[Rfam]
RNA sequence: AGUGGCUCAUUCACCGACUUAUGUCAGCCCCUUCGGGACGUGCUACAUAAAAUACGAAUGACGCACAACAAGGUGCCUGCCGUCCAACUUCUGAUAUCAGCGUAGCUAUAUCAACCAUCGGGCGAAACGUCGAGUUAGGCACCGCCUU
Numbered sequence: 001a002g003u004g005g006c007u008c009a010u011u012c013a014c015c016g017a018c019u020u021a022u023g024u025c026a027g028c029c030c031c032u033u034c035g036g037g038a039c040g041u042g043c044u045a046c047a048u049a050a051a052a053u054a055c056g057a058a059u060g061a062c063g064c065a066c067a068a069c070a071a072g073g074u075g076c077c078u079g080c081c082g083u084c085c086a087a088c089u090u091c092u093g094a095u096a097u098c099a100g101c102g103u104a105g106c107u108a109u110a111u112c113a114a115c116c117a118u119c120g121g122g123c124g125a126a127a128c129g130u131c132g133a134g135u136u137a138g139g140c141a142c143c144g145c146c147u148u
Stems, first nucleotide, its partner, number of pairs: 005064002007061006019050006026044003072143007081124005092113006126136003
The family of this 148-nucleotide sequence from Escherichia coli is "Glm Y RNA activator of glmS mRNA". Rfam's curators put it in the seed alignment. By type it is a small RNA. Pairs were carried over by alignment from the consensus structure, which is taken from published work. A reference for the family is Reichenbach et al. (2008), "The small RNA GlmY acts upstream of the sRNA GlmZ in the activation of glmS expression and is subject to regulation by polyadenylation in Escherichia coli", Nucleic Acids Res. Rfam describes the family as follows. This family consists of a number of bacterial RNA genes of around 167 bases in length. Lineage of the source: Bacteria > Pseudomonadati > Enterobacterales > Enterobacteriaceae > Escherichia coli K-12.